[Rfam]
RNA sequence: GCUAUGCGAUAACUCCGAGCUUGAUUGUCUACCACAACUAAAAGUUGUAAUGAGAGUUAAGCCGAAAACGUCUUGUAGUUGUCUCGUAUUAUAAAAACUGAGCGAGAGGGUUAAAGGAUGUUUUCCAGGGUGAUGAAAGAAAUGCCAUCACCUCCCGUAUUUGGAAAGGUGUUAACAGAGAAUGCUU
Numbered sequence: 001g002c003u004a005u006g007c008g009a010u011a012a013c014u015c016c017g018a019g020c021u022u023g024a025u026u027g028u029c030u031a032c033c034a035c036a037a038c039u040a041a042a043a044g045u046u047g048u049a050a051u052g053a054g055a056g057u058u059a060a061g062c063c064g065a066a067a068a069c070g071u072c073u074u075g076u077a078g079u080u081g082u083c084u085c086g087u088a089u090u091a092u093a094a095a096a097a098c099u100g101a102g103c104g105a106g107a108g109g110g111u112u113a114a115a116g117g118a119u120g121u122u123u124u125c126c127a128g129g130g131u132g133a134u135g136a137a138a139g140a141a142a143u144g145c146c147a148u149c150a151c152c153u154c155c156c157g158u159a160u161u162u163g164g165a166a167a168g169g170u171g172u173u174a175a176c177a178g179a180g181a182a183u184g185c186u187u
Base pairs, nucleotide, nucleotide: 003181011173012172013171015169016168019062020061021060022059023058024057025056026055028053029052034048035047036046037045038044064125065124066123067122068121069120070119071118072117073116074115128153129152130151131150132149133148134147135146138143154164155163
RNA: Molybdenum/Tungsten riboswitch aptamer (Moco RNA motif)